[Rfam]
RNA sequence: UGGGCCGUCUACAAGCGCGGGCUUGCGGCGCGCGGCGGCGCGCGGAGAUCUCGAGGCAACGGGGAGCGGCUGGGCCCCCGGCGGCGCGCCCCGCGGCCUGAACCGGAGCCGCGCCGGUCGGAGGCCGAGCGCGGCCCGCCUCCCUCUCAGCGCCCAUCUGUCCGGAGUCAAGCCAGCGGUCAUGACCGACCCACCAGGGGCGCCGCCACCGGCGGUCGCAGGCCGCGGGUGAAGAAGAAAAUCCGUACCCGCUCGGCCCGGAGCGAGGAGGUGCCUCAGAACAAGGAGGUGCCUCAGAACAAGGAGGUGCCUCGGAGCGAGGAGGUGACCCCGAGAACGGAGGUGGCUCGGAGCGAGGAGGCG
Dot-bracket structure: ...................(.(..((.........(((.(((.((...)).).......(.(((.((......)).))).)......)).)))..))..)..).................................(((((((...............((.(((............))).))...............((.(((((....))))).))................................(((((......))))).........................................................................)))))))..................

This 363-nucleotide RNA sequence from Tupaia belangeri belongs to the Rfam family "Bag-1 internal ribosome entry site (IRES)". This family represents the bag-1 internal ribosome entry site (IRES). When expressed the BAG-1 protein is known to enhance the anti-apoptotic properties of Bcl-2. Although bag-1 translation usually occurs via a cap-dependent mechanism it has been found to contain a IRES in its 5' UTR. Translation via the IRES has been found to be common following heat shock when cap-dependent scanning is compromised. Pairs were carried over by alignment from the consensus structure, which was predicted with PFOLD.